A member of the RNA family "Gammaprotebacteria rimP leader" from Vibrio sp. 16, 133 nucleotides long. For this family Rfam cites "Premature terminator analysis sheds light on a hidden world of bacterial transcriptional attenuation" (Naville and Gautheret, Genome Biol, 2010). It is one of the family's seed sequences.
RNA sequence: AGAUAUCGUUUAACUAUCAGGGUCCAGCAACAAAAAACCCCGACUUUUCGGGGUUUUUUGUUAUCUAAAUUUUCCCAAUGGGAAAAUUUGGUGUUUUGCUUGGAAUUUAAAUUGGGCUCUGAGCCCUUUUUUU
Numbered sequence: 001a002g003a004u005a006u007c008g009u010u011u012a013a014c015u016a017u018c019a020g021g022g023u024c025c026a027g028c029a030a031c032a033a034a035a036a037a038c039c040c041c042g043a044c045u046u047u048u049c050g051g052g053g054u055u056u057u058u059u060g061u062u063a064u065c066u067a068a069a070u071u072u073u074c075c076c077a078a079u080g081g082g083a084a085a086a087u088u089u090g091g092u093g094u095u096u097u098g099c100u101u102g103g104a105a106u107u108u109a110a111a112u113u114g115g116g117c118u119c120u121g122a123g124c125c126c127u128u129u130u131u132u133u
Base pairs, nucleotide, nucleotide: 034057035056036055037054038053039052040051041050042049114126115125116124117123